[Rfam]
RNA sequence: UCACGUGGACGACCACGCGCGCGUCGAUUACACCGGGGACGGCCCCA
Numbered sequence: 001u002c003a004c005g006u007g008g009a010c011g012a013c014c015a016c017g018c019g020c021g022c023g024u025c026g027a028u029u030a031c032a033c034c035g036g037g038g039a040c041g042g043c044c045c046c047a
Stems, first nucleotide, its partner, number of pairs: 002019001004017005035046004
Dot-bracket structure: .(.(((((....))))).)...............((((....)))).